[Rfam]
Nucleotides: 097
Base pairs, nucleotide, nucleotide: 003091004090005089006088007087009083010082011081012080013079016075017074018073019072021070025064026063027062033058034057035056036055042049043048
Number, partner (000 for none) and nucleotide at each position: 001000g002000a003091c004090u005089c006088g007087g008000g009083c010082c011081a012080u013079g014000c015000g016075g017074c018073u019072c020000g021070g022000a023000c024000g025064c026063c027062c028000a029000a030000a031000u032000c033058u034057g035056g036055u037000c038000a039000g040000g041000a042049c043048c044000g045000g046000a047000a048043g049042g050000g051000a052000g053000c054000a055036g056035c057034c058033a059000c060000a061000c062027g063026g064025g065000a066000u067000g068000c069000u070021c071000a072019g073018a074017g075016c076000a077000g078000g079013c080012g081011u082010g083009g084000a085000c086000u087007c088006c089005g090004g091003g092000u093000c094000a095000c096000c097000c